Annotation
Shown here is a 254-nucleotide RNA from Anabarilius grahami, a member of the family "RNase MRP". NCBI's taxonomy places the organism under Eukaryota, Actinopterygii, Actinopteri, Cypriniformes, Anabarilius. The base pairs follow the family's consensus structure, which is taken from published work. It scores 142 bits against the family's covariance model. It is annotated as a ribozyme.
RNA sequence: GCGCAUGCCUGAAAACUUGUAUCCUAAGCUACGCACGGGGAACCUGGUUUCGCCAUCAUCGCUUAGGGGAAAGUCCCCGGACACUGGGCAGAGAUGUCCUGCAUUCAGCGCAGAGCGGCGGGUUGCGCAGCCCAUCAUCGCUAAGAAGUCCUGUGACUGAGCAUUGAGCUUGCAACCCCCAUUUGUCAAUGAACUAGACAUGCAAGUGUAGUACAAACGUACAUCUACACAACGGGGCUCAUUCUCAGCAUGCG
Dot-bracket structure: .(((((((..((..((((((..(((((((........(.(((......))).).......)))))))....[[.[[[[........((((....))))((((.(...).)))).(.(...((((((...((.(......((......(((....)))...))...).))..))))))).).....................))))))...((((....))))...........]]]]]].....)).)))))))